[Rfam]
The record is a 71-nucleotide RNA from Zonotrichia albicollis, which matches "Small nucleolar RNA SNORD34" in Rfam.
snoRNA U34 is found in intron 5 of the ribosomal protein L13a gene in humans.
The family's consensus secondary structure was predicted with PFOLD.
Its family is annotated with nucleolus and RNA processing in the Gene Ontology.
The family has 14 seed sequences and 1,319 matches in Rfam 15.1.
The family is grouped with related families in Rfam's "SNORD34 clan".

RNA sequence: GGUGUCGGUGAUGUCACCUGUACCUACAUUGUUUGACUCGAGAUGAGAAAAACCCAAACCCUGAGACACCC
Numbered sequence: 001g002g003u004g005u006c007g008g009u010g011a012u013g014u015c016a017c018c019u020g021u022a023c024c025u026a027c028a029u030u031g032u033u034u035g036a037c038u039c040g041a042g043a044u045g046a047g048a049a050a051a052a053c054c055c056a057a058a059c060c061c062u063g064a065g066a067c068a069c070c071c
Base pairs, nucleotide, nucleotide: 001070003068004067005066006065